[Rfam]
RNA sequence: AGUUGGUCCAAGUGUUGUAGGUUAUUGUUAAGCUGAUUUAACAUUGUCUCCCAAAAUAACCACACCUGACUAGCUAUUA
Numbered sequence: 001a002g003u004u005g006g007u008c009c010a011a012g013u014g015u016u017g018u019a020g021g022u023u024a025u026u027g028u029u030a031a032g033c034u035g036a037u038u039u040a041a042c043a044u045u046g047u048c049u050c051c052c053a054a055a056a057u058a059a060c061c062a063c064a065c066c067u068g069a070c071u072a073g074c075u076a077u078u079a
Stems, first nucleotide, its partner, number of pairs: 001075008010067001014063002016058003026043003030039002
RNA: Y RNA
Organism: Pan troglodytes